Rfam assigns this 124-nucleotide RNA sequence from Deinococcus yavapaiensis to the family "glmS glucosamine-6-phosphate activated ribozyme aptamer". Pairs were carried over by alignment from the consensus structure, which is taken from published work. The organism belongs to Deinococcus yavapaiensis, within Bacteria. A search with the family's covariance model found it, with a score of 46 bits.

[Rfam]
RNA sequence: UUCUCAGGGGAAGCGCAAGGUCCAGCUCCUCGCUGGAUGACGAGGUGGAGGUGAUCGAGCAUCUGCGGAUGCCUCCAGGGUCGCAUCGGACCCUCCCCGCACGAAGACUCGUGCAAGCCCAGCC
Numbered sequence: 001u002u003c004u005c006a007g008g009g010g011a012a013g014c015g016c017a018a019g020g021u022c023c024a025g026c027u028c029c030u031c032g033c034u035g036g037a038u039g040a041c042g043a044g045g046u047g048g049a050g051g052u053g054a055u056c057g058a059g060c061a062u063c064u065g066c067g068g069a070u071g072c073c074u075c076c077a078g079g080g081u082c083g084c085a086u087c088g089g090a091c092c093c094u095c096c097c098c099g100c101a102c103g104a105a106g107a108c109u110c111g112u113g114c115a116a117g118c119c120c121a122g123c124c
Stems, first nucleotide, its partner, number of pairs: 020038007047076005055065001057063002077094006099114006